[Rfam]
RNA sequence: GGAUCAAUGAUGACCUUCUCAUAUAAGCAUUCCUUGGAAAGCUGAACAAAAUGAGUGAGAACUCAUACCGUCGUUCUCAUCGGAUCUGAGGUCC
Numbered sequence: 001g002g003a004u005c006a007a008u009g010a011u012g013a014c015c016u017u018c019u020c021a022u023a024u025a026a027g028c029a030u031u032c033c034u035u036g037g038a039a040a041g042c043u044g045a046a047c048a049a050a051a052u053g054a055g056u057g058a059g060a061a062c063u064c065a066u067a068c069c070g071u072c073g074u075u076c077u078c079a080u081c082g083g084a085u086c087u088g089a090g091g092u093c094c
Stems, first nucleotide, its partner, number of pairs: 001094005028057005034049003
A member of the RNA family "Small nucleolar RNA SNORD116" from Molossus molossus, 94 nucleotides long. The family's RNA type in Rfam is C/D-box small nucleolar RNA. On this family, see Cavaille et al., Proc Natl Acad Sci U S A 2000: "Identification of brain-specific and imprinted small nucleolar RNA genes exhibiting an unusual genomic organization". Taxonomically the source falls in Molossus (Eukaryota, Chordata, Gnathostomata, Boreoeutheria). Rfam links the family to the GO terms nucleolus and RNA processing. The family has 48 seed sequences and 3,260 matches in Rfam 15.1. Pairs were carried over by alignment from the consensus structure, which was predicted with PFOLD.